[Rfam]
RNA sequence: CGGUGAGGUAGAGGCGCGAAUGAUAUUAGUAGUCAAUAGGAGAAUGACAACGAUGAUUAUUGAUGAAAGGAUUGUUUGCCGAAGCAUAAUAUGGGUCAAACUUAUUAUUGCUGGUAUAUCUUUUAAUAAGAGAUAUACUGUCAUGCAUUACGGAAUUGCAUGGAGAACUACUGAUCGA
Numbered sequence: 001c002g003g004u005g006a007g008g009u010a011g012a013g014g015c016g017c018g019a020a021u022g023a024u025a026u027u028a029g030u031a032g033u034c035a036a037u038a039g040g041a042g043a044a045u046g047a048c049a050a051c052g053a054u055g056a057u058u059a060u061u062g063a064u065g066a067a068a069g070g071a072u073u074g075u076u077u078g079c080c081g082a083a084g085c086a087u088a089a090u091a092u093g094g095g096u097c098a099a100a101c102u103u104a105u106u107a108u109u110g111c112u113g114g115u116a117u118a119u120c121u122u123u124u125a126a127u128a129a130g131a132g133a134u135a136u137a138c139u140g141u142c143a144u145g146c147a148u149u150a151c152g153g154a155a156u157u158g159c160a161u162g163g164a165g166a167a168c169u170a171c172u173g174a175u176c177g178a
Stems, first nucleotide, its partner, number of pairs: 007172005016079009032064008083112003086108006093101001113139011141163007
Annotation
Rfam assigns this 178-nucleotide RNA sequence from Virgibacillus oceani to the family "Lysine riboswitch aptamer". Lineage of the source: Bacteria > Bacillati > Bacilli > Bacillaceae > Virgibacillus. For this family Rfam cites "Riboswitches Control Fundamental Biochemical Pathways in Bacillus subtilis and Other Bacteria" (Mandal et al., Cell, 2003). Pairs were carried over by alignment from the consensus structure, which is taken from published work.